[Rfam]
RNA sequence: CCUCUUGGUGAUGACAAGAUCCUCGGCUACAUGCUAGCCGGUCUUGAUUCUGAAUUUGAACCUCUGGUGGCCUCCAUCACUGCUCGCGAGGAGCCGAUCAGCCUUGGCAGCUUUACGCGUUCCUCGUCAGUGCCGAGU
Numbered sequence: 001c002c003u004c005u006u007g008g009u010g011a012u013g014a015c016a017a018g019a020u021c022c023u024c025g026g027c028u029a030c031a032u033g034c035u036a037g038c039c040g041g042u043c044u045u046g047a048u049u050c051u052g053a054a055u056u057u058g059a060a061c062c063u064c065u066g067g068u069g070g071c072c073u074c075c076a077u078c079a080c081u082g083c084u085c086g087c088g089a090g091g092a093g094c095c096g097a098u099c100a101g102c103c104u105u106g107g108c109a110g111c112u113u114u115a116c117g118c119g120u121u122c123c124u125c126g127u128c129a130g131u132g133c134c135g136a137g138u
Base pairs, nucleotide, nucleotide: 004137005136006135007134008133088108091105092104093103
A member of the RNA family "Small nucleolar RNA Z247" from Triticum aestivum, 138 nucleotides long.
The match comes from Rfam's covariance-model search (48 bits).
The family's RNA type in Rfam is C/D-box small nucleolar RNA.
Gene Ontology terms of the family: RNA processing and nucleolus.
The source organism's lineage runs through Eukaryota, Spermatophyta, Poaceae, Pooideae and Triticum.
The base pairs follow the family's consensus structure, which was predicted with PFOLD.